A member of the RNA family "Small nucleolar RNA SNORA11" from Carlito syrichta, 124 nucleotides long. The organism belongs to Carlito, within Eukaryota. A search with the family's covariance model found it, with a score of 94 bits. For this family Rfam cites "A novel experimental approach for systematic identification of box H/ACA snoRNAs from eukaryotes" (Gu et al., Nucleic Acids Res, 2005). From the family's description: U107 (SNORA11) is a member of the H/ACA class of snoRNAs that guide the sites of modification of uridines to pseudouridines. This snoRNA was identified by RT-PCR from blood cells and its expression confirmed by Northern blot analysis. There is no predicted target for this guide snRNA. The family has 35 seed sequences and 2,014 matches in Rfam 15.1. The family's consensus secondary structure was predicted with RNAalifold.
[Rfam]
RNA sequence: UAGCUGUGUCACAGAGUAGAGGGCCUGAAGAAUUGCUCCUCUGUUUAUAACACACCCAACAGGAAUCUGUUGUUACAAAGGGCAUGAAACUUGUGGCCUCUCUAUGAACAAAUGCCCUACAGAU
Numbered sequence: 001u002a003g004c005u006g007u008g009u010c011a012c013a014g015a016g017u018a019g020a021g022g023g024c025c026u027g028a029a030g031a032a033u034u035g036c037u038c039c040u041c042u043g044u045u046u047a048u049a050a051c052a053c054a055c056c057c058a059a060c061a062g063g064a065a066u067c068u069g070u071u072g073u074u075a076c077a078a079a080g081g082g083c084a085u086g087a088a089a090c091u092u093g094u095g096g097c098c099u100c101u102c103u104a105u106g107a108a109c110a111a112a113u114g115c116c117c118u119a120c121a122g123a124u
Stems, first nucleotide, its partner, number of pairs: 003056001005054004014046009023036002071110003076106002079099003083095005
Dot-bracket structure: ..(.((((.....(((((((((((..........)).)))))))))....)))).)..............(((..((.(((.(((((...))))).))).....)).)))..............